Background
The record is a 92-nucleotide RNA sequence from Branchiostoma floridae, which matches "mir-2060 microRNA precursor family" in Rfam. The match comes from Rfam's covariance-model search (90 bits). The source organism's lineage runs through Eukaryota, Chordata, Leptocardii, Branchiostomatidae and Branchiostoma. Gene Ontology terms of the family: RISC complex and miRNA-mediated post-transcriptional gene silencing.
[Rfam]
RNA sequence: GUUUACCGGUGUGUUGAUGGUGUUCAGCACCAAGGACAGAUGUGAUUGACUGUGUGGAUGGUGUUCAGCACCAAGAACAGGUAUGUUUACCU
Numbered sequence: 001g002u003u004u005a006c007c008g009g010u011g012u013g014u015u016g017a018u019g020g021u022g023u024u025c026a027g028c029a030c031c032a033a034g035g036a037c038a039g040a041u042g043u044g045a046u047u048g049a050c051u052g053u054g055u056g057g058a059u060g061g062u063g064u065u066c067a068g069c070a071c072c073a074a075g076a077a078c079a080g081g082u083a084u085g086u087u088u089a090c091c092u
Base pairs, nucleotide, nucleotide: 004083005082006081007080009078010077018073019072020071021070022069023068024067026065027064028063029062030061031060032059034055036053037052038051039050041048042047